[Rfam]
RNA sequence: CGUUCUUAAUCGCUAAAUUUCCCUUCGGGGAAAACGGGGGACCCAAACGUUAACUAUCCGAUCGGUGUGAGAGCCGUACGAUAAGAGACAUGGGGUGAAUCACUUAAGUAGCCUUGCCAUGGAUAGGCGACUUAAGCGUAGGGCGACUCUCACUGCCCGAAUCCGACAGCUAACCUCGUCAGCGUUAUUUGAGAGAGGAU
Numbered sequence: 001c002g003u004u005c006u007u008a009a010u011c012g013c014u015a016a017a018u019u020u021c022c023c024u025u026c027g028g029g030g031a032a033a034a035c036g037g038g039g040g041a042c043c044c045a046a047a048c049g050u051u052a053a054c055u056a057u058c059c060g061a062u063c064g065g066u067g068u069g070a071g072a073g074c075c076g077u078a079c080g081a082u083a084a085g086a087g088a089c090a091u092g093g094g095g096u097g098a099a100u101c102a103c104u105u106a107a108g109u110a111g112c113c114u115u116g117c118c119a120u121g122g123a124u125a126g127g128c129g130a131c132u133u134a135a136g137c138g139u140a141g142g143g144c145g146a147c148u149c150u151c152a153c154u155g156c157c158c159g160a161a162u163c164c165g166a167c168a169g170c171u172a173a174c175c176u177c178g179u180c181a182g183c184g185u186u187a188u189u190u191g192a193g194a195g196a197g198g199a200u
Stems, first nucleotide, its partner, number of pairs: 011184004018033005034179006044092002093164003101138001103136007141158004
RNA: c-di-AMP riboswitch aptamer (ydaO/yuaA leader)
Organism: Paenibacillus sp. GSMTC-2017